[Rfam]
The record is a 64-nucleotide RNA sequence, which matches "Selenocysteine insertion sequence 1" in Rfam. Rfam's curators write: The incorporation of selenocysteine into a protein sequence is directed by an in-frame UGA codon (usually a stop codon) within the coding region of the mRNA. Selenoprotein mRNAs contain a conserved secondary structure in the 3' UTR that is required for the distinction of UGA stop from UGA selenocysteine. The selenocysteine insertion sequence (SECIS) is around 60 nt in length and adopts a hairpin structure which is sufficiently well-defined and conserved to act as a computational screen for selenoprotein genes. It is one of the family's seed sequences. The family's RNA type in Rfam is cis-regulatory element. Rfam 15.1 lists 3,793 matches to the family in 721 species.

RNA sequence: GUGUCUCUAUGAAGGAGGGGCCCGAAGCCCUUGUGGGCGGGCCUCCCCUGAGCCCGUCUGUGGU
Number, nucleotide and partner (000 for none) at each position: 001g064002u063003g000004u000005c060006u000007c000008u000009a000010u000011g000012a000013a000014g048015g047016a000017g045018g044019g043020g042021c041022c040023c039024g000025a000026a000027g000028c000029c037030c036031u035032u000033g000034u000035g031036g030037g029038c000039g023040g022041g021042c020043c019044u018045c017046c000047c015048c014049u000050g000051a000052g000053c000054c000055c000056g000057u000058c000059u000060g005061u000062g000063g002064u001